[Rfam]
RNA sequence: UUAUAGCCCUGAUUGUAAUGGAAAUCCUUUUGCUUUUUCUUUUAAAAAAGCAAAAGAUUGCAAUGGAAAGCAGGAAUAGGG
Numbered sequence: 001u002u003a004u005a006g007c008c009c010u011g012a013u014u015g016u017a018a019u020g021g022a023a024a025u026c027c028u029u030u031u032g033c034u035u036u037u038u039c040u041u042u043u044a045a046a047a048a049a050g051c052a053a054a055a056g057a058u059u060g061c062a063a064u065g066g067a068a069a070g071c072a073g074g075a076a077u078a079g080g081g
Base pairs, nucleotide, nucleotide: 009073010072011071013069014068018064019063023059024058025057026056029054030053031052032051033050034048035047036046037045038044
RNA: Flavo-1 RNA